Record summary: The family of this 89-nucleotide RNA from Crocuta crocuta is "Small nucleolar RNA SNORD116". By type it is a C/D-box small nucleolar RNA. Gene Ontology terms of the family: RNA processing and nucleolus. NCBI's taxonomy places the organism under Eukaryota, Deuterostomia, Chordata, Boreoeutheria, Crocuta.
RNA sequence: GUAUCCAUAAUGACAAAAUAACAGCAUUGCUUGAAAAUGCUAAUCAAAAUGAAUGAAAACUCAUUAUAGUAUUAUUGAAAUUGAGAUCC
Dot-bracket structure: (.(((...................((((..(((...........)))....)))).............................))).)